[Rfam]
RNA sequence: CCAAAGGCUCUUUUCAGAGCCACCUCAGUGUAUCAGAAAAGUGUAA
Numbered sequence: 001c002c003a004a005a006g007g008c009u010c011u012u013u014u015c016a017g018a019g020c021c022a023c024c025u026c027a028g029u030g031u032a033u034c035a036g037a038a039a040a041g042u043g044u045a046a
Stems, first nucleotide, its partner, number of pairs: 006021006
RNA: Histone 3' UTR stem-loop